FMN riboswitch aptamer (RFN element): a 127-nucleotide RNA sequence from Kineococcus radiotolerans.

RNA sequence: ACGCGUGCUCCGGGGUCGGUGCAAUUCCGAACCGGCGGUGACAGUCCGCGAGCCCCCGCUUCGGCGGGUGGUUGAUCCGGUGGAACUCCGGGACCGACGGUGAGAGUCCGGAUGGGAGGCAGCGCGC
Numbered sequence: 001a002c003g004c005g006u007g008c009u010c011c012g013g014g015g016u017c018g019g020u021g022c023a024a025u026u027c028c029g030a031a032c033c034g035g036c037g038g039u040g041a042c043a044g045u046c047c048g049c050g051a052g053c054c055c056c057c058g059c060u061u062c063g064g065c066g067g068g069u070g071g072u073u074g075a076u077c078c079g080g081u082g083g084a085a086c087u088c089c090g091g092g093a094c095c096g097a098c099g100g101u102g103a104g105a106g107u108c109c110g111g112a113u114g115g116g117a118g119g120c121a122g123c124g125c126g127c
Stems, first nucleotide, its partner, number of pairs: 003125004009119002017029003031107002033096002035049004044094002052072003076092005098110003
Dot-bracket structure: ..((((..((......(((.......))).[[((((((.....[[))))..(((...............)))...(((((.......)))))]])).(((.....]]))).......))..))))..